[Rfam]
The family of this 55-nucleotide sequence from Solanum commersonii is "MIR8008 microRNA precursor family".
RNA sequence: UUUUCCAGAAAAGCGACGGACAGUGUCCUUCAGUCCGUUGCUUUUCUGGGUUUUU
Number, nucleotide and partner (000 for none) at each position: 001u000002u000003u000004u050005c049006c048007a047008g046009a045010a044011a043012a042013g041014c040015g039016a038017c037018g036019g035020a034021c033022a000023g000024u000025g000026u000027c000028c000029u000030u000031c000032a000033g021034u020035c019036c018037g017038u016039u015040g014041c013042u012043u011044u010045u009046c008047u007048g006049g005050g004051u000052u000053u000054u000055u000
Gene Ontology terms of the family: RISC complex and miRNA-mediated post-transcriptional gene silencing. NCBI's taxonomy places the organism under Eukaryota, Magnoliopsida, Gunneridae, Pentapetalae, Solanum.